[Rfam]
RNA: tRNA
RNA sequence: GCCCGCUUGGCGUAACGGUAGCCGCAGCAGACUUAAAAUCUGCCGAUCUGUUUGAUCGUGCCGGUUCGAAUCUGGCAGCGGGCA
Numbered sequence: 001g002c003c004c005g006c007u008u009g010g011c012g013u014a015a016c017g018g019u020a021g022c023c024g025c026a027g028c029a030g031a032c033u034u035a036a037a038a039u040c041u042g043c044c045g046a047u048c049u050g051u052u053u054g055a056u057c058g059u060g061c062c063g064g065u066u067c068g069a070a071u072c073u074g075g076c077a078g079c080g081g082g083c084a
Base pairs, nucleotide, nucleotide: 001083002082003081004080005079006078007077010025011024012023027043028042029041030040031039060076061075062074063073064072